[Rfam]
RNA sequence: GCGGAGGGCUGGGUGACCGCGGGGUGGCAACACCACGAGGAAAGUCCGGACUCCACAAGGCAACGGUGCCGGGUAACGCCCGGCCGGGGAAACCCGAGGGAAAGCGCCACAGAAAACAGACCGCCCAGAGCGUCAGAGGUUCGCUUCCGACAAUAUCAGGGUCAGGGUGAAACGGUGGGGUAAGAGCCCACCGCGGGACGGGCAACCGGACCGGCACGGCAAGCCCCACCGGGAGCAAUGCCAAAUAGGGACAGCAUAUGGGCCAGCCUUGGCCCGGCCGUUCGGGUUGGCAGCUAAAGAUCUGUUGGCAACAGCAGGUCUAGAUGAAUGGUCAUCCAGGGGGUCCGCCCCCGGACAGAAUCCGGCUUAUAGGCCCUCCGCGCAU
Number, nucleotide and partner (000 for none) at each position: 001g381002c380003g379004g378005a377006g376007g375008g374009c373010u372011g370012g336013g335014u334015g333016a332017c331018c330019g000020c037021g036022g000023g034024g033025u032026g031027g000028c000029a000030a000031c026032a025033c024034c023035a000036c021037g020038a000039g000040g000041a000042a368043a367044g366045u000046c365047c364048g363049g362050a361051c235052u234053c233054c232055a000056c000057a000058a000059g269060g268061c000062a000063a000064c231065g230066g229067u228068g227069c083070c082071g081072g080073g079074u000075a000076a000077c000078g000079c073080c072081c071082g070083g069084c098085c096086g095087g094088g093089g000090a000091a000092a000093c088094c087095c086096g085097a000098g084099g226100g225101a000102a000103a000104g224105c223106g220107c219108c218109a000110c000111a000112g000113a000114a000115a000116a000117c000118a000119g000120a000121c166122c165123g162124c161125c160126c159127a000128g157129a156130g000131c000132g000133u000134c000135a000136g000137a000138g000139g000140u000141u000142c000143g000144c000145u000146u000147c000148c000149g000150a000151c000152a000153a000154u000155a000156u129157c128158a000159g126160g125161g124162u123163c000164a000165g122166g121167g000168u000169g000170a000171a000172a000173c000174g192175g191176u190177g189178g188179g187180g000181u000182a000183a000184g000185a000186g000187c179188c178189c177190a176191c175192c174193g215194c213195g212196g211197g000198a000199c208200g207201g206202g000203c000204a000205a000206c201207c200208g199209g000210a000211c196212c195213g194214g000215c193216a000217c000218g108219g107220c106221a000222a000223g105224c104225c100226c099227c068228a067229c066230c065231g064232g054233g053234a052235g051236c000237a000238a000239u292240g291241c290242c289243a000244a000245a000246u000247a000248g000249g283250g282251a281252c280253a000254g278255c000256a000257u000258a000259u000260g275261g274262g273263c272264c271265a000266g000267c000268c060269u059270u000271g264272g263273c262274c261275c260276g000277g000278c254279c000280g252281u251282u250283c249284g000285g000286g000287u000288u000289g242290g241291c240292a239293g000294c000295u000296a000297a000298a000299g000300a319301u318302c317303u316304g315305u314306u313307g312308g000309c000310a000311a000312c307313a306314g305315c304316a303317g302318g301319u300320c000321u000322a000323g000324a000325u000326g000327a000328a000329u000330g018331g017332u016333c015334a014335u013336c012337c000338a000339g000340g000341g000342g000343g000344u000345c000346c000347g000348c000349c000350c000351c000352c000353g000354g000355a000356c000357a000358g000359a000360a000361u050362c049363c048364g047365g046366c044367u043368u042369a000370u011371a000372g010373g009374c008375c007376c006377u005378c004379c003380g002381c001382g000383c000384a000385u000
RNA: Bacterial RNase P class A
Organism: Roseovarius albus